Annotation
The record is a 129-nucleotide RNA sequence from Marisediminitalea lipolytica, which matches "RtT RNA" in Rfam.
[Rfam]
RNA sequence: AGCUACACAUGCUCGCGCCGGAUGCGAACCAGCGAAGCUGUUCGACACUAAACUCUGUUUAGUGAACGUGCUUUAGCACGGCCCGAAGGGUGAGCCUUGUAAAGGCGAAUCAUCCAGCACGACACACCA
Numbered sequence: 001a002g003c004u005a006c007a008c009a010u011g012c013u014c015g016c017g018c019c020g021g022a023u024g025c026g027a028a029c030c031a032g033c034g035a036a037g038c039u040g041u042u043c044g045a046c047a048c049u050a051a052a053c054u055c056u057g058u059u060u061a062g063u064g065a066a067c068g069u070g071c072u073u074u075a076g077c078a079c080g081g082c083c084c085g086a087a088g089g090g091u092g093a094g095c096c097u098u099g100u101a102a103a104g105g106c107g108a109a110u111c112a113u114c115c116a117g118c119a120c121g122a123c124a125c126a127c128c129a
Stems, first nucleotide, its partner, number of pairs: 015120001017118002020115002023112001033092002041087004067080005

Rfam describes the family as follows. This family represents a bacterial cis-regulatory element known as RtT RNA. The exact function of RtT is unknown although it is thought that it may be involved in changing the cellular response in relation to amino acid starvation. The family has 57 seed sequences and 651 matches in Rfam 15.1.